[Rfam]
RNA sequence: GGCAGCCUCGGGAGAGCGACCCAAGAGCUGACAGAACCCGUCUCCUGCGUGGGCGAUCGUGGGAGACGGCGUUUUGUGAAAUGGAAUCCUGAAAAGACUUGGUGCGUUCGCCGAGAAGCUCAGUAGCGCGGCAAACUUGGUUGUACCGAUGGUCGCAUCGCUCGGGAAGAACCGCGUUCUUCUCGCGGCCUCAGUAGCCCCC
Dot-bracket structure: ..((((((.(((.......))).)).))))(((((((.(((((((((((........)))))))))))..)))))))...................................................................((.((..(((((.......((((((((.....))))))))))))).)).)).......
Numbered sequence: 001g002g003c004a005g006c007c008u009c010g011g012g013a014g015a016g017c018g019a020c021c022c023a024a025g026a027g028c029u030g031a032c033a034g035a036a037c038c039c040g041u042c043u044c045c046u047g048c049g050u051g052g053g054c055g056a057u058c059g060u061g062g063g064a065g066a067c068g069g070c071g072u073u074u075u076g077u078g079a080a081a082u083g084g085a086a087u088c089c090u091g092a093a094a095a096g097a098c099u100u101g102g103u104g105c106g107u108u109c110g111c112c113g114a115g116a117a118g119c120u121c122a123g124u125a126g127c128g129c130g131g132c133a134a135a136c137u138u139g140g141u142u143g144u145a146c147c148g149a150u151g152g153u154c155g156c157a158u159c160g161c162u163c164g165g166g167a168a169g170a171a172c173c174g175c176g177u178u179c180u181u182c183u184c185g186c187g188g189c190c191u192c193a194g195u196a197g198c199c200c201c202c
Stems, first nucleotide, its partner, number of pairs: 003030004007025002010022003031077007039068011145195002148192002152189005164184008